[Rfam]
RNA sequence: CGAACCGCAGCGGGAGAGCGCACGUCCGACGUGCCGCCGAAGGAGCAACUUCUCCCCAGAAUCUCUCAGGCCCCCAUGACCGCUGCGGUGAG
Numbered sequence: 001c002g003a004a005c006c007g008c009a010g011c012g013g014g015a016g017a018g019c020g021c022a023c024g025u026c027c028g029a030c031g032u033g034c035c036g037c038c039g040a041a042g043g044a045g046c047a048a049c050u051u052c053u054c055c056c057c058a059g060a061a062u063c064u065c066u067c068a069g070g071c072c073c074c075c076a077u078g079a080c081c082g083c084u085g086c087g088g089u090g091a092g
Stems, first nucleotide, its partner, number of pairs: 006087008020034004036071003039067002043065003049059002